mir-2060 microRNA precursor family: an 82-nucleotide sequence from Branchiostoma belcheri.
RNA sequence: GUGUGUGAAUAGUGUUCAGCACCAAGGACAGGCAUGUUUGUGUGUGGAUGGUGUUCAGCACCAAGGACAGGCAUGUUUGUGA
Numbered sequence: 001g002u003g004u005g006u007g008a009a010u011a012g013u014g015u016u017c018a019g020c021a022c023c024a025a026g027g028a029c030a031g032g033c034a035u036g037u038u039u040g041u042g043u044g045u046g047g048a049u050g051g052u053g054u055u056c057a058g059c060a061c062c063a064a065g066g067a068c069a070g071g072c073a074u075g076u077u078u079g080u081g082a
Base pairs, nucleotide, nucleotide: 001068002067010063012061013060014059015058016057018055019054020053021052022051023050024049026043028041029040030039031038032037
Its family is annotated with RISC complex and miRNA-mediated post-transcriptional gene silencing in the Gene Ontology. The organism belongs to Branchiostoma, within Eukaryota. The family's consensus secondary structure was predicted with RNAalifold. The match comes from Rfam's covariance-model search (68 bits).